[Rfam]
RNA sequence: AAAAUUGUGCUCAUUAUCUCUCUCCAUAGGAUUUUUACCCUUUCCUAUUAGCGAUAUUGGGCACAAACAA
Numbered sequence: 001a002a003a004a005u006u007g008u009g010c011u012c013a014u015u016a017u018c019u020c021u022c023u024c025c026a027u028a029g030g031a032u033u034u035u036u037a038c039c040c041u042u043u044c045c046u047a048u049u050a051g052c053g054a055u056a057u058u059g060g061g062c063a064c065a066a067a068c069a070a
Base pairs, nucleotide, nucleotide: 006065007064008063009062010061011060012059013058015056018051019050027047028046029045030044031043